[Rfam]
RNA sequence: CAAUAUCGGAUAGCGCCAGACCUGAACGUUCAGGUGACGAGGAGAGAGCUUAUCGAAGAUUCGGCGGGUGGCUCUAGGGACUGCACUCUACAGAUAACAAAGAAAAACUAAUUGUGAAGUUAGAACAAAGCGGUUAUCACGCAGGUAG
Numbered sequence: 001c002a003a004u005a006u007c008g009g010a011u012a013g014c015g016c017c018a019g020a021c022c023u024g025a026a027c028g029u030u031c032a033g034g035u036g037a038c039g040a041g042g043a044g045a046g047a048g049c050u051u052a053u054c055g056a057a058g059a060u061u062c063g064g065c066g067g068g069u070g071g072c073u074c075u076a077g078g079g080a081c082u083g084c085a086c087u088c089u090a091c092a093g094a095u096a097a098c099a100a101a102g103a104a105a106a107a108c109u110a111a112u113u114g115u116g117a118a119g120u121u122a123g124a125a126c127a128a129a130g131c132g133g134u135u136a137u138c139a140c141g142c143a144g145g146u147a148g
Stems, first nucleotide, its partner, number of pairs: 020035006045075005053064004076089004093138006108123006
glmS glucosamine-6-phosphate activated ribozyme aptamer: a 148-nucleotide sequence from Enterococcus faecalis. NCBI's taxonomy places the organism under Bacteria, Bacillota, Bacilli, Enterococcaceae, Enterococcus faecalis.